Rfam assigns this 109-nucleotide sequence from Sporolactobacillus laevolacticus to the family "SAM riboswitch aptamer (S box leader)".

RNA sequence: CUCUUAUCGCGAGAGACGGAGGGAAUUGGCCCGAUGAAGUCCGGCAACCACUUUACGUUCAGUAAAGUACAGGUGCCAAAUCCAACAGGACUUUCCUGAAAGAUAAGGA
Numbered sequence: 001c002u003c004u005u006a007u008c009g010c011g012a013g014a015g016a017c018g019g020a021g022g023g024a025a026u027u028g029g030c031c032c033g034a035u036g037a038a039g040u041c042c043g044g045c046a047a048c049c050a051c052u053u054u055a056c057g058u059u060c061a062g063u064a065a066a067g068u069a070c071a072g073g074u075g076c077c078a079a080a081u082c083c084a085a086c087a088g089g090a091c092u093u094u095c096c097u098g099a100a101a102g103a104u105a106a107g108g109a
Stems, first nucleotide, its partner, number of pairs: 002108007013042001015041003021032003026085004043077004048073002050068006081101001086098005